[Rfam]
This 304-nucleotide sequence from Zingiber officinale belongs to the Rfam family "Plant signal recognition particle RNA". Rfam classes the family as a non-coding RNA gene. The match comes from Rfam's covariance-model search (176 bits). The family's consensus secondary structure is taken from published work. NCBI's taxonomy places the organism under Eukaryota, Streptophyta, Magnoliopsida, Zingiberaceae, Zingiber.
RNA sequence: GUCGAGCUGGGUAGCUCCAGUUUGUGAUCCAAGCGGAGGUUAAUGAAUGAUUUGGAUGGUGGGGUUGAGUUCUGAGGCGUGAAUCCAAUGUAUAAUUGUUGACCUGCCCGAUCCAAGUUGAUUGUGAACUGGUAAAAUUCGAUGAAGAUCGGAUUCUCCCGGUUCAUAAUGCGGAGGGCACCGGUCCAGGCUGGUUUCACAGAGCAAGUACACCCGCCCGCUUUCGACGGUGGAAGGAUAACAGGUCGAUUUACACGGGAUUCACAUUACCCCUCAGAGCCUCUUCCAUCAAACAAAUCAUUUU
Dot-bracket structure: (((((((((((....))))))))....(((....))))))....((((((((((..((.(((((..(...(((((((.((((((((...(((.((...((((((((.((..((((.(((((..(((((((((.(.((((((((....)))))))).).))))))).......((.(((.....((.....(((......))).....))...))).)).))..)))))..)))).))....)))))))))))))...)))))).....)).))))))).)..)).))).))..)))))))))).